[Rfam]
RNA sequence: GCCGAAGCCCGUUUCCCGGGUUCGGCAGUCCGGAGGGGCGCUCCUCUUUGGGCGCCCUCUUAUAUCCAUGUUGCUCAUCGGAGGAUGUGGCUAUGAGAA
Numbered sequence: 001g002c003c004g005a006a007g008c009c010c011g012u013u014u015c016c017c018g019g020g021u022u023c024g025g026c027a028g029u030c031c032g033g034a035g036g037g038g039c040g041c042u043c044c045u046c047u048u049u050g051g052g053c054g055c056c057c058u059c060u061u062a063u064a065u066c067c068a069u070g071u072u073g074c075u076c077a078u079c080g081g082a083g084g085a086u087g088u089g090g091c092u093a094u095g096a097g098a099a
Stems, first nucleotide, its partner, number of pairs: 001026006008020004035058009059097006066090007074083003
RNA: Repression of heat shock gene expression (ROSE) element
Organism: Hypericibacter adhaerens